[Rfam]
RNA sequence: GUGAUCCGCGGCGAAUAGCCGCGGCCUCAUUGAAGC
Number, nucleotide and partner (000 for none) at each position: 001g000002u000003g000004a000005u000006c024007c023008g022009c021010g020011g019012c018013g000014a000015a000016u000017a000018g012019c011020c010021g009022c008023g007024g006025c000026c000027u000028c000029a000030u000031u000032g000033a000034a000035g000036c000

Description:
The family of this 36-nucleotide sequence from Arenimonas fontis is "CRISPR RNA direct repeat element". Taxonomically the source falls in Arenimonas (Bacteria, Pseudomonadati, Gammaproteobacteria, Lysobacteraceae). Rfam 15.1 lists 1,291 matches to the family in 43 species.